[Rfam]
RNA sequence: UAUAUAAAAAUAAAAGCACCCCAUAUAUUCCUGGAAAUACGGUCUGGGAGUCUCUACAGAGUAACCGAAAAUUACUCUACUAUGGACGGUUAAUAAUAGAAU
Numbered sequence: 001u002a003u004a005u006a007a008a009a010a011u012a013a014a015a016g017c018a019c020c021c022c023a024u025a026u027a028u029u030c031c032u033g034g035a036a037a038u039a040c041g042g043u044c045u046g047g048g049a050g051u052c053u054c055u056a057c058a059g060a061g062u063a064a065c066c067g068a069a070a071a072u073u074a075c076u077c078u079a080c081u082a083u084g085g086a087c088g089g090u091u092a093a094u095a096a097u098a099g100a101a102u
Stems, first nucleotide, its partner, number of pairs: 021085005029049007058078007
Rfam assigns this 102-nucleotide RNA from Paraliobacillus sp. PM-2 to the family "Purine riboswitch aptamer". Taxonomically the source falls in Paraliobacillus (Bacteria, Bacillota, Bacilli, Caryophanales). Rfam's curators write: Riboswitches are metabolite binding domains within certain messenger RNAs that serve as precision sensors for their corresponding targets.